The family of this 77-nucleotide sequence from Teichococcus coralli is "Makes More Granules Regulator RNA (mmgR)". About the family: SuhB later renamed mmgR (makes more granules regulator) was a putative non-coding RNA found multiple times in the Agrobacterium tumefaciens genome and related alpha-proteobacteria. The base pairs follow the family's consensus structure.
RNA sequence: UCUUCCUGCCGUGUGACUGGCGUUUCCUCCCUAAACUCGGGCCGCACCUUUCAGGUGUGGCCCUUUCUUUUUGCCGA
Number, nucleotide and partner (000 for none) at each position: 001u000002c000003u000004u000005c000006c000007u000008g021009c020010c019011g000012u000013g000014u000015g000016a000017c000018u000019g010020g009021c008022g000023u000024u000025u000026c000027c000028u000029c000030c000031c000032u000033a000034a000035a000036c000037u000038c000039g000040g062041g061042c060043c059044g058045c057046a056047c055048c054049u000050u000051u000052c000053a000054g048055g047056u046057g045058u044059g043060g042061c041062c040063c000064u000065u000066u000067c000068u000069u000070u000071u000072u000073g000074c000075c000076g000077a000
The organism belongs to Roseomonas, within Bacteria.